The family of this 81-nucleotide RNA from Firmicutes bacterium CAG:94 is "pemK RNA".

RNA sequence: ACAAUGGUACUUCCGCCUUGGACGCUUCACAGCAUCGGGCGGCCCGGCAUCAGCAUGCGGGGAGAGAGAAACUCUCUAUGG
Numbered sequence: 001a002c003a004a005u006g007g008u009a010c011u012u013c014c015g016c017c018u019u020g021g022a023c024g025c026u027u028c029a030c031a032g033c034a035u036c037g038g039g040c041g042g043c044c045c046g047g048c049a050u051c052a053g054c055a056u057g058c059g060g061g062g063a064g065a066g067a068g069a070a071a072c073u074c075u076c077u078a079u080g081g
Stems, first nucleotide, its partner, number of pairs: 012078001013042006043062003047058003063077003